[Rfam]
RNA sequence: CAGAAAUUUGCUCUUUUGUAUUUGUCAAGCAGGUUUCCUUUAAAAGGAAACCCAC
Numbered sequence: 001c002a003g004a005a006a007u008u009u010g011c012u013c014u015u016u017u018g019u020a021u022u023u024g025u026c027a028a029g030c031a032g033g034u035u036u037c038c039u040u041u042a043a044a045a046g047g048a049a050a051c052c053c054a055c
Base pairs, nucleotide, nucleotide: 032052033051034050035049036048037047038046039045